[Rfam]
About this RNA:
Rfam assigns this 127-nucleotide sequence from [Bacillus] caldolyticus to the family "PyrR binding site". Gene Ontology terms of the family: pyrimidine nucleobase transport and pyrimidine nucleobase biosynthetic process. NCBI's taxonomy places the organism under Bacteria, Bacillati, Bacillota, Bacilli, Geobacillus. The sequence is in the family's curated seed alignment. This family represents the PyrR binding site and terminator structure. This RNA structure is found upstream of a variety of genes involved in pyrimidine biosynthesis and transport. The alignment also includes a portion of the antiterminator structure.
RNA sequence: GGAACCUUUAAGUUCAGUCCUGUGAGGCUGAAAAGGGGUCGGAAUGACAAAGAAGGGCGAUGUAUGCCCAUCUUGUUUGGUGAUAAGCGCGCCAUCCCCCGCUUCACAGGCGGGGGAUUUUUUGUGC
Numbered sequence: 001g002g003a004a005c006c007u008u009u010a011a012g013u014u015c016a017g018u019c020c021u022g023u024g025a026g027g028c029u030g031a032a033a034a035g036g037g038g039u040c041g042g043a044a045u046g047a048c049a050a051a052g053a054a055g056g057g058c059g060a061u062g063u064a065u066g067c068c069c070a071u072c073u074u075g076u077u078u079g080g081u082g083a084u085a086a087g088c089g090c091g092c093c094a095u096c097c098c099c100c101g102c103u104u105c106a107c108a109g110g111c112g113g114g115g116g117a118u119u120u121u122u123u124g125u126g127c
Base pairs, nucleotide, nucleotide: 005036006035007034008033009032014031015030016029017028018027019026046078047077050074051073052072053071055069056068057067058066059065091121094118095117096116097115098114099113100112101111102110103109